[Rfam]
RNA sequence: GGGGGAAGUCUUAGCCCCCCGCCGGGCAAAGUGUUAAUAGCGCCGCUUGUGGCCGAGCGUCGCGGUUAGUGAAUC
Numbered sequence: 001g002g003g004g005g006a007a008g009u010c011u012u013a014g015c016c017c018c019c020c021g022c023c024g025g026g027c028a029a030a031g032u033g034u035u036a037a038u039a040g041c042g043c044c045g046c047u048u049g050u051g052g053c054c055g056a057g058c059g060u061c062g063c064g065g066u067u068a069g070u071g072a073a074u075c
Stems, first nucleotide, its partner, number of pairs: 001019005034069005040063003044059005
Shown here is a 75-nucleotide sequence, a member of the family "L13-Bacteroidia ribosomal protein leader". The family's consensus secondary structure is taken from published work. The literature on the family includes a 2020 paper in BMC Microbiol by Eckert and Weinberg, "Discovery of 20 novel ribosomal leader candidates in bacteria and archaea".